This 132-nucleotide sequence from Cricetulus griseus belongs to the Rfam family "Small nucleolar RNA SNORA68". Pairs were carried over by alignment from the consensus structure, which was predicted with PFOLD. Its family is annotated with nucleolus and RNA processing in the Gene Ontology. U68 is a member of the H/ACA class of small nucleolar RNAs (snoRNAs) which act as guides in the the modification of uridines to pseudouridines.
RNA sequence: UCUGCACCCAACCCAAGAACUACCGCUGUUUCUAGCGGCUGUUUAAACAAUGGUGCACACAGCAAAAGGGGCUUUGUCACCUUUGGGGGCCUGUGCGGUAAACCCCAGAGUGAAUCAGGAGGUUCCACAGGC
Numbered sequence: 001u002c003u004g005c006a007c008c009c010a011a012c013c014c015a016a017g018a019a020c021u022a023c024c025g026c027u028g029u030u031u032c033u034a035g036c037g038g039c040u041g042u043u044u045a046a047a048c049a050a051u052g053g054u055g056c057a058c059a060c061a062g063c064a065a066a067a068g069g070g071g072c073u074u075u076g077u078c079a080c081c082u083u084u085g086g087g088g089g090c091c092u093g094u095g096c097g098g099u100a101a102a103c104c105c106c107a108g109a110g111u112g113a114a115u116c117a118g119g120a121g122g123u124u125c126c127a128c129a130g131g132c
Stems, first nucleotide, its partner, number of pairs: 003057006018043003023038005069125007081110008